[Rfam]
RNA sequence: UGAAGAAUUAAGAGGCAACUCUUAACUGGCCGGCUAAGGAAAAACCGAGAGGUUCAAGCUUAGAGGGCAGAAAGCUCUGCGGAGUAGCGCUUAAAUCGCAGAGCGGAGGGCAUGGCGGUAGCGCAUACAACGACGUGCCAA
Numbered sequence: 001u002g003a004a005g006a007a008u009u010a011a012g013a014g015g016c017a018a019c020u021c022u023u024a025a026c027u028g029g030c031c032g033g034c035u036a037a038g039g040a041a042a043a044a045c046c047g048a049g050a051g052g053u054u055c056a057a058g059c060u061u062a063g064a065g066g067g068c069a070g071a072a073a074g075c076u077c078u079g080c081g082g083a084g085u086a087g088c089g090c091u092u093a094a095a096u097c098g099c100a101g102a103g104c105g106g107a108g109g110g111c112a113u114g115g116c117g118g119u120a121g122c123g124c125a126u127a128c129a130a131c132g133a134c135g136u137g138c139c140a141a
Stems, first nucleotide, its partner, number of pairs: 008025007026070003030067002034063005043054004074104008087124005109139006116132002
Description: Rfam assigns this 141-nucleotide RNA sequence to the family "IMES-2 RNA motif". For this family Rfam cites "Exceptional structured noncoding RNAs revealed by bacterial metagenome analysis" (Weinberg et al., Nature, 2009).